[Rfam]
RNA sequence: GGGGGCGAUUGGUUUCGACAGGGAGUACAAGGAUCAAAAGCUGCAAGCCGAGGUGCCGUUACCUCGUAAAACAACGGCAAAAAAGAAGUGCCAACACAAAUUUAGCAUUAGCUGCUUAAUUUAGCAGCUACGCUCUUCUAACCCGGGCUGGCAGGGUUAGAAGGGUGUCAUAAUGAGCCAGCUGCCCCUUCCGACUCCCCUAAGGAAGGGAAAGAUGUAGGGGAUAGGUGCUUACAGAAUCCUGCGGGAGGGAGUCUGUAAGUGCCGAAAAGUUAAAACUCCCGCUAAGCUUGUAGAGGCUUUUGAUUCUUGCUCUCUGGACGCGGGUUCGACUCCCGCCGCCUCCACCA
Dot-bracket structure: (((((((...........(((((((((...((((((((((((.((((([[[[[(((((((.]]]]]......))))))).............................((((((((......))))))))(((((((((.((((.[[[[[[[.)))).))))))))).........]]]]]]]...[[[[......((((((....]]]].......))))))...(((((((((.....((.[[[..[[)).....)))))))))............]]..]]]...)))))....)))))))))))).)))))))))...(((((.......))))))))))))....
Shown here is a 350-nucleotide RNA from Dictyoglomus thermophilum, a member of the family "transfer-messenger RNA". About the family: Bacterial tmRNA, also known as 10Sa RNA or SsrA, is named for its dual tRNA and mRNA-like properties. The base pairs follow the family's consensus structure, which is taken from published work. Rfam classes the family as a non-coding RNA gene. Gene Ontology term of the family: RNA catabolic process.